Rfam assigns this 222-nucleotide RNA from Ricinus communis to the family "MIR159 microRNA precursor family". The family has 66 seed sequences and 3,649 matches in Rfam 15.1.
[Rfam]
RNA sequence: AUGCGUGCAUGGGGGCUCUCUUCUAGCUCCGAUUCUGAAAGGAGAUGAUGGUGCGACAUGGCUGCUAGUUCAUGAAUACCCUUUGGUGCGCAGGUCAGUUCUAUGUAGUUGGCAAAUGGCAAUGGUGAUGCGCAGCCUAAGAGUAAGCAUCUGCUGGGAGCUCUGUUUACCUUUGAUAUUCUUUUUGGUAUUGGGGCGAAGGAAGCUCCUAUAUUUACAUGU
Numbered sequence: 001a002u003g004c005g006u007g008c009a010u011g012g013g014g015g016c017u018c019u020c021u022u023c024u025a026g027c028u029c030c031g032a033u034u035c036u037g038a039a040a041g042g043a044g045a046u047g048a049u050g051g052u053g054c055g056a057c058a059u060g061g062c063u064g065c066u067a068g069u070u071c072a073u074g075a076a077u078a079c080c081c082u083u084u085g086g087u088g089c090g091c092a093g094g095u096c097a098g099u100u101c102u103a104u105g106u107a108g109u110u111g112g113c114a115a116a117u118g119g120c121a122a123u124g125g126u127g128a129u130g131c132g133c134a135g136c137c138u139a140a141g142a143g144u145a146a147g148c149a150u151c152u153g154c155u156g157g158g159a160g161c162u163c164u165g166u167u168u169a170c171c172u173u174u175g176a177u178a179u180u181c182u183u184u185u186u187g188g189u190a191u192u193g194g195g196g197c198g199a200a201g202g203a204a205g206c207u208c209c210u211a212u213a214u215u216u217a218c219a220u221g222u
Stems, first nucleotide, its partner, number of pairs: 013208005019202002026197006038185001062160002065157003072150003079143001
It is one of the family's seed sequences.